RNA: MIR397 microRNA precursor family
Nucleotides: 121
Stems, first nucleotide, its partner, number of pairs: 006118006013111013028096001030094003
Number, partner (000 for none) and nucleotide at each position: 001000a002000c003000u004000a005000a006118a007117a008116a009115c010114a011113u012000g013111a014110u015109u016108g017107a018106g019105u020104g021103c022102a023101g024100c025099g026000c027000a028096g029000a030094u031093g032092a033000a034000a035000a036000c037000g038000a039000a040000u041000u042000g043000g044000a045000a046000a047000a048000a049000g050000u051000g052000g053000c054000a055000a056000a057000g058000u059000c060000c061000a062000a063000a064000u065000g066000c067000c068000a069000a070000a071000u072000u073000a074000a075000a076000g077000a078000c079000u080000u081000c082000a083000c084000a085000g086000a087000u088000a089000u090000u091000g092032u093031c094030a095000u096028c097000a098000a099025c100024g101023c102022u103021g104020c105019a106018c107017u108016c109015a110014a111013u112000g113011a114010u115009g116008u117007u118006u119000c120000u121000a